Background
A member of the RNA family "FMN riboswitch aptamer (RFN element)" from Laceyella tengchongensis, 139 nucleotides long. The RFN element is a highly conserved domain that is found frequently in the 5'-untranslated regions of prokaryotic mRNAs that encode for flavin mononucleotide (FMN) biosynthesis and transport proteins. The organism belongs to Laceyella, within Bacteria.

RNA sequence: GAUAUCCUUCGGGGCAGGGUGAAAUUCCCGACCGGCGGUGAUGGGAAAUGCGUUUCCCUAAGCCCGUGACCCGCUUACAAGCGGUGGAUUCGGUGUGAUUCCGAAGCCGACAGUAUAGUCUGGAUGGGAGAAGGAUGAU
Dot-bracket structure: ..((((((((......(((.......))).[[((((((.......................[[))))...((..........))....(((((.......)))))]])).(((....]]))).......))))))))..